RNA sequence: GAAGUUGUCGUCCUCAGCCGACAGCAGGGCAUGGAUGAAGUCCUGGGGGAUGUCGCUGAAACGGAUCGGCGUCCGACGCAUCUCGCCAAAUUCUGCUAUCAGUUUGUCAUCACCGCUGUAGACGCGCAGGGGCAUCUGCAGGCGCACGUUGCGCAGCGCCUCGACCGAGGGCAGGUUGGGGCUGAGAUACAGGUAGGCGCCGCUGAAACUGAGCAGCAGGCCACAGAAGAUGGUGACGCAGGUCCACCACAGAAACUUCAGCAAACGCAUGGAAUGAUUUGGAUUUCCAGGGAA
Number, nucleotide and partner (000 for none) at each position: 001g000002a000003a000004g000005u000006u000007g000008u000009c000010g172011u171012c170013c169014u168015c167016a000017g165018c000019c163020g162021a161022c000023a000024g000025c045026a044027g043028g042029g041030c040031a000032u000033g000034g000035a000036u000037g000038a000039a000040g030041u029042c028043c027044u026045g025046g000047g084048g083049g082050a081051u080052g079053u000054c078055g077056c000057u075058g074059a000060a000061a000062c069063g000064g000065a000066u000067c000068g000069g062070c000071g000072u000073c000074c058075g057076a000077c055078g054079c052080a051081u050082c049083u048084c047085g000086c095087c000088a000089a000090a000091u000092u000093c000094u000095g086096c000097u000098a000099u000100c000101a000102g159103u158104u000105u155106g154107u153108c148109a000110u146111c000112a000113c000114c000115g000116c141117u140118g139119u138120a137121g136122a135123c000124g000125c131126g000127c000128a000129g000130g000131g125132g000133c000134a000135u122136c121137u120138g119139c118140a117141g116142g000143c000144g000145c000146a110147c000148g108149u000150u000151g000152c000153g107154c106155a105156g000157c000158g103159c102160c000161u021162c020163g019164a000165c017166c000167g015168a014169g013170g012171g011172c010173a000174g000175g000176u290177u289178g288179g287180g286181g285182c000183u283184g000185a000186g280187a279188u000189a000190c000191a000192g000193g000194u000195a000196g000197g268198c267199g266200c000201c000202g262203c261204u260205g259206a258207a257208a000209c000210u000211g000212a000213g239214c238215a000216g000217c235218a234219g000220g000221c232222c000223a000224c000225a000226g000227a000228a000229g000230a000231u000232g221233g000234u218235g217236a000237c000238g214239c213240a000241g000242g000243u254244c000245c252246a000247c000248c000249a000250c000251a000252g245253a000254a243255a000256c000257u207258u206259c205260a204261g203262c202263a000264a000265a000266c199267g198268c197269a000270u000271g000272g000273a000274a000275u000276g000277a000278u000279u187280u186281g000282g000283a183284u000285u181286u180287c179288c178289a177290g176291g000292g000293a000294a000
Rfam assigns this 294-nucleotide RNA from Pseudomonas jinjuensis to the family "anti ponA RNA". Transcribed antisense to the penicillin-binding protein 1A gene called ponA. It was identified by RNAseq and the expression was validated by 5' and 3' RACE experiments. AsponA expression was up or down regulated under different antibiotic stress. Due to its location it may be able to prevent the transcription or translation of the opposite gene. The organism belongs to Pseudomonas, within Bacteria.